[Rfam]
RNA sequence: CUGACUCCCGAGUCGAACCAGGACGGGGGCGGGGGAACCACUUCUCCGACGCGUCCGCGCGUCUCGGGGUGAAGCCGCGCCGUGCGCUCCACGCACGGCGGGCCGGGCACGAUCAGCCCGAACCCGACAGCUCACCUCGCCGGCGGUGAUCGGAGGAUCA
Numbered sequence: 001c002u003g004a005c006u007c008c009c010g011a012g013u014c015g016a017a018c019c020a021g022g023a024c025g026g027g028g029g030c031g032g033g034g035g036a037a038c039c040a041c042u043u044c045u046c047c048g049a050c051g052c053g054u055c056c057g058c059g060c061g062u063c064u065c066g067g068g069g070u071g072a073a074g075c076c077g078c079g080c081c082g083u084g085c086g087c088u089c090c091a092c093g094c095a096c097g098g099c100g101g102g103c104c105g106g107g108c109a110c111g112a113u114c115a116g117c118c119c120g121a122a123c124c125c126g127a128c129a130g131c132u133c134a135c136c137u138c139g140c141c142g143g144c145g146g147u148g149a150u151c152g153g154a155g156g157a158u159c160a
Stems, first nucleotide, its partner, number of pairs: 001143002006028005029140006039066001067125003075102002105119004